[Rfam]
RNA sequence: GCAUGGGUUUAGAUUUAUGGCAGGCUCUUCCCCAUGGGCCUUUCAUAGUGCCCCAUGCCAGAGCAAACUGUAGCCCUGAACCAUAGGCUGUGGCACUGAAGUGGCAAAAAG
Dot-bracket structure: ((((((((......((((((.(((((.........)).))).)))))).)))).))))............(.((.(.....((....(...)....))....))).)....